[Rfam]
RNA sequence: GACUUACAUUCAGUAGCAAGGUUAACCGUUUAGGGGAGCCGUAGGGAAACCGAGUCUUAAUAGGGCGUUCAGUUGCUGGGUGUAGACCCGAAACCCGGCGAUCUACCCAUGGGCAGGUUGAAGGUGCCGUAACAGGCACUGGAGGACCGAACCGUAAUCUGUUGAAAAAGAUUCGGAUGACUUGUGGGUCGGAGUGAAAGGCUAAUCAAGCCGGGAGAUAGCUGGUU
Numbered sequence: 001g002a003c004u005u006a007c008a009u010u011c012a013g014u015a016g017c018a019a020g021g022u023u024a025a026c027c028g029u030u031u032a033g034g035g036g037a038g039c040c041g042u043a044g045g046g047a048a049a050c051c052g053a054g055u056c057u058u059a060a061u062a063g064g065g066c067g068u069u070c071a072g073u074u075g076c077u078g079g080g081u082g083u084a085g086a087c088c089c090g091a092a093a094c095c096c097g098g099c100g101a102u103c104u105a106c107c108c109a110u111g112g113g114c115a116g117g118u119u120g121a122a123g124g125u126g127c128c129g130u131a132a133c134a135g136g137c138a139c140u141g142g143a144g145g146a147c148c149g150a151a152c153c154g155u156a157a158u159c160u161g162u163u164g165a166a167a168a169a170g171a172u173u174c175g176g177a178u179g180a181c182u183u184g185u186g187g188g189u190c191g192g193a194g195u196g197a198a199a200g201g202c203u204a205a206u207c208a209a210g211c212c213g214g215g216a217g218a219u220a221g222c223u224g225g226u227u
Stems, first nucleotide, its partner, number of pairs: 005084013020040004026034002044051002054066004087225002090222001094215006103191001105189009114179001116148004123140006152176003156173005193203003
Overview:
Bacterial large subunit ribosomal RNA: a 227-nucleotide part of an RNA from Ketobacter alkanivorans. Rfam links the family to the GO terms structural constituent of ribosome and ribosome.